Rfam assigns this 136-nucleotide RNA from Castor canadensis to the family "Small nucleolar RNA SNORA51".
Its family is annotated with nucleolus and RNA processing in the Gene Ontology.
The source organism's lineage runs through Eukaryota, Sarcopterygii, Mammalia, Boreoeutheria and Castor.
The family's consensus secondary structure was predicted with PFOLD.
ACA51 is a member of the H/ACA class of snoRNA that guide the sites of modification of uridines to pseudouridines.
[Rfam]
RNA sequence: UAUCUCGAAAAUACCCAACACAAAAACCUUUAUUCUUACACUGACUGUAUAAAAAGUGGAGGCAAAGUAAACCUAUCCCAUAUACACCUCAUCCCAGGUCCUAUGUCUGGUCUGUACUGUGAAUGGAGAGACAUGG
Numbered sequence: 001u002a003u004c005u006c007g008a009a010a011a012u013a014c015c016c017a018a019c020a021c022a023a024a025a026a027c028c029u030u031u032a033u034u035c036u037u038a039c040a041c042u043g044a045c046u047g048u049a050u051a052a053a054a055a056g057u058g059g060a061g062g063c064a065a066a067g068u069a070a071a072c073c074u075a076u077c078c079c080a081u082a083u084a085c086a087c088c089u090c091a092u093c094c095c096a097g098g099u100c101c102u103a104u105g106u107c108u109g110g111u112c113u114g115u116a117c118u119g120u121g122a123a124u125g126g127a128g129a130g131a132c133a134u135g136g
Stems, first nucleotide, its partner, number of pairs: 003062004008057001021047002031040001033038001076128001078126004090114002094110006